[Rfam]
RNA sequence: ACUUUUUAUUAAGCGCCAGAACUUGACUAGCGCGGGAUGUGUGAAGAUUAAACACAACGGCAGAUCAAGUUGACGAGGUGGAGGUGUUCGAAAUGUUCGGCGGGGGCCUCCCGGUGAUACACCAGAGCCGUGAAUCAAUAACGGAAAAUGAGUGGGCGACUGUUCAUACAAUGUUAUGAUGGGUGUAAU
Numbered sequence: 001a002c003u004u005u006u007u008a009u010u011a012a013g014c015g016c017c018a019g020a021a022c023u024u025g026a027c028u029a030g031c032g033c034g035g036g037a038u039g040u041g042u043g044a045a046g047a048u049u050a051a052a053c054a055c056a057a058c059g060g061c062a063g064a065u066c067a068a069g070u071u072g073a074c075g076a077g078g079u080g081g082a083g084g085u086g087u088u089c090g091a092a093a094u095g096u097u098c099g100g101c102g103g104g105g106g107c108c109u110c111c112c113g114g115u116g117a118u119a120c121a122c123c124a125g126a127g128c129c130g131u132g133a134a135u136c137a138a139u140a141a142c143g144g145a146a147a148a149u150g151a152g153u154g155g156g157c158g159a160c161u162g163u164u165c166a167u168a169c170a171a172u173g174u175u176a177u178g179a180u181g182g183g184u185g186u187a188a189u
Base pairs, nucleotide, nucleotide: 020071021070022069023068024067025066026065080111081110082109083108084107088100089099090098091097112130113129114128115127135182136181137180138177139176140175141174149166150165151164152163153162154161155160